[Rfam]
RNA sequence: GUUGGAUAUGGAGACAUGUGCCCCUCCACCAUUGGGGGCAAAUUCGUCGGAUCGUUGUGCGCCAUUGCAGGAGUGCUAACCAUAGCUUUACCUGUCCCUGUCAUAGUGUCAAAU
Numbered sequence: 001g002u003u004g005g006a007u008a009u010g011g012a013g014a015c016a017u018g019u020g021c022c023c024c025u026c027c028a029c030c031a032u033u034g035g036g037g038g039c040a041a042a043u044u045c046g047u048c049g050g051a052u053c054g055u056u057g058u059g060c061g062c063c064a065u066u067g068c069a070g071g072a073g074u075g076c077u078a079a080c081c082a083u084a085g086c087u088u089u090a091c092c093u094g095u096c097c098c099u100g101u102c103a104u105a106g107u108g109u110c111a112a113a114u
Stems, first nucleotide, its partner, number of pairs: 001114002005110001007108003011104001013102004018097001020095002037077004049063002

Potassium channel RNA editing signal: a 114-nucleotide sequence from Gymnodraco acuticeps. The base pairs follow the family's consensus structure, which is taken from published work. On this family, see Bhalla et al., Nat Struct Mol Biol 2004: "Control of human potassium channel inactivation by editing of a small mRNA hairpin". Rfam describes the family as follows. This family represents a group of sequences related to the human potassium channel Kv1.1 hairpin element which directs the efficient modification of an adenosine to inosine by an adenosine deaminase acting on RNA (ADAR). The source organism's lineage runs through Eukaryota, Eumetazoa, Euteleosteomorpha, Eupercaria and Gymnodraco. The family's RNA type in Rfam is cis-regulatory element.